[Rfam]
RNA sequence: GCGGUACCGGUUCCCGCGCAGCGCAUCGUGGUGUGCCCGAUGCGCGCAGCCCCGACAGGCAGAGCGACCCGGCGACC
Numbered sequence: 001g002c003g004g005u006a007c008c009g010g011u012u013c014c015c016g017c018g019c020a021g022c023g024c025a026u027c028g029u030g031g032u033g034u035g036c037c038c039g040a041u042g043c044g045c046g047c048a049g050c051c052c053c054g055a056c057a058g059g060c061a062g063a064g065c066g067a068c069c070c071g072g073c074g075a076c077c
Base pairs, nucleotide, nucleotide: 003077004076005075007072008071009070010069015066016065017064019062021060022059
Dot-bracket structure: ..(((.((((....(((.(.((....................................)).).)))..))))..)))

The family of this 77-nucleotide sequence from Microbispora triticiradicis is "L31-Actinobacteria ribosomal protein leader". Clan: Ribosomal Protein L31 Leader clan. NCBI's taxonomy places the organism under Bacteria, Actinomycetota, Streptosporangiales, Streptosporangiaceae, Microbispora. For this family Rfam cites "Discovery of 20 novel ribosomal leader candidates in bacteria and archaea" (Eckert and Weinberg, BMC Microbiol, 2020). The family's RNA type in Rfam is cis-regulatory leader.